[Rfam]
RNA sequence: GCCCCCAGACCAAACUGUGACGUUUAUCGUCGCUUGCCCGAAAGGGAUAGGUCUGGGGGUUUUC
Numbered sequence: 001g002c003c004c005c006c007a008g009a010c011c012a013a014a015c016u017g018u019g020a021c022g023u024u025u026a027u028c029g030u031c032g033c034u035u036g037c038c039c040g041a042a043a044g045g046g047a048u049a050g051g052u053c054u055g056g057g058g059g060u061u062u063u064c
Stems, first nucleotide, its partner, number of pairs: 001060011017033006037046003
A member of the RNA family "DUF3800-IX RNA", 64 nucleotides long.
The base pairs follow the family's consensus structure, which is taken from published work.
About the family: Actinobacteria, Firmicutes (1 example), Nitrospirae, Proteobacteria, Verrucomicrobia (1 example).
Rfam classes the family as a small RNA.